[Rfam]
RNA: Group II catalytic intron D1-D4-7
RNA sequence: CCAGAUGUACUCUCAUCUGAGUCUAAAUGAAUAUGCUAGGUUGGUAACGAUUUAGUGUAAAGCUUCAUUGACAAUGCUUUGAUUAUUGAGGUAUUAAACUAUAAAUAUUAAUAUUUAAAUUCUCAGGGUUAGACUGUGGGAUAAAAGG
Numbered sequence: 001c002c003a004g005a006u007g008u009a010c011u012c013u014c015a016u017c018u019g020a021g022u023c024u025a026a027a028u029g030a031a032u033a034u035g036c037u038a039g040g041u042u043g044g045u046a047a048c049g050a051u052u053u054a055g056u057g058u059a060a061a062g063c064u065u066c067a068u069u070g071a072c073a074a075u076g077c078u079u080u081g082a083u084u085a086u087u088g089a090g091g092u093a094u095u096a097a098a099c100u101a102u103a104a105a106u107a108u109u110a111a112u113a114u115u116u117a118a119a120u121u122c123u124c125a126g127g128g129u130u131a132g133a134c135u136g137u138g139g140g141a142u143a144a145a146a147g148g
Stems, first nucleotide, its partner, number of pairs: 002019006027068005032059012084093003095117004106113002121141005